Bacterial large subunit ribosomal RNA: a 265-nucleotide part of an RNA from Vibrio maritimus. Rfam links the family to the GO terms structural constituent of ribosome and ribosome.
[Rfam]
RNA sequence: GGAAGAUUGAAGGGGGCUGCUCCUAGUACGAGAGGACCGGAGUGGACGAACCUCUGGUGUUCGGGUUGUCAUGCCAAUGGCAUUGCCCGGUAGCUAAGUUCGGAAUCGAUAACCGCUGAAAGCAUCUAAGCGGGAAGCGAGCCCUGAGAUGAGUCUUCCCUGGCACUUUAAGUGUCCUAAAGGGUUGUUCGAGACUAGAACGUUGAUAGGCAGGGUGUGUAAGCGUUGUGAGGCGUUGAGCUAACCUGUACUAAUUGCCCGUGAG
Numbered sequence: 001g002g003a004a005g006a007u008u009g010a011a012g013g014g015g016g017c018u019g020c021u022c023c024u025a026g027u028a029c030g031a032g033a034g035g036a037c038c039g040g041a042g043u044g045g046a047c048g049a050a051c052c053u054c055u056g057g058u059g060u061u062c063g064g065g066u067u068g069u070c071a072u073g074c075c076a077a078u079g080g081c082a083u084u085g086c087c088c089g090g091u092a093g094c095u096a097a098g099u100u101c102g103g104a105a106u107c108g109a110u111a112a113c114c115g116c117u118g119a120a121a122g123c124a125u126c127u128a129a130g131c132g133g134g135a136a137g138c139g140a141g142c143c144c145u146g147a148g149a150u151g152a153g154u155c156u157u158c159c160c161u162g163g164c165a166c167u168u169u170a171a172g173u174g175u176c177c178u179a180a181a182g183g184g185u186u187g188u189u190c191g192a193g194a195c196u197a198g199a200a201c202g203u204u205g206a207u208a209g210g211c212a213g214g215g216u217g218u219g220u221a222a223g224c225g226u227u228g229u230g231a232g233g234c235g236u237u238g239a240g241c242u243a244a245c246c247u248g249u250a251c252u253a254a255u256u257g258c259c260c261g262u263g264a265g
Stems, first nucleotide, its partner, number of pairs: 001159008011145004017045007047102005055096003062089005067082006106140003113133005162177002179262001182260004186202005207253003210249005217241001223236005